[Rfam]
RNA sequence: GACUUUGCGACUCCAGUCCGAGCGUUAAGCGAAGGGCUGAUGGCUGGUGGCUUAUGCCACCGGCCU
Dot-bracket structure: .............(((((...((.....))....)))))..((((((((((....)))))))))).

The family of this 66-nucleotide RNA from Pseudomonas entomophila is "Pseudomonas sRNA P26". Pairs were carried over by alignment from the consensus structure, which was predicted with RNAalifold. The family's RNA type in Rfam is non-coding RNA gene. Rfam describes the family as follows. This small RNA (sRNA) was computationally identified in the genome of the opportunistic pathogen Pseudomonas aeruginosa and its expression verified by northern blot analysis. P26 is conserved across many Gammaproteobacteria species and appears to be consistently located between the DNA directed RNA polymerase (beta subunit) and 50S ribosomal protein L7/L12 genes. The source organism's lineage runs through Bacteria, Pseudomonadales, Pseudomonadaceae, Pseudomonas and Pseudomonas entomophila.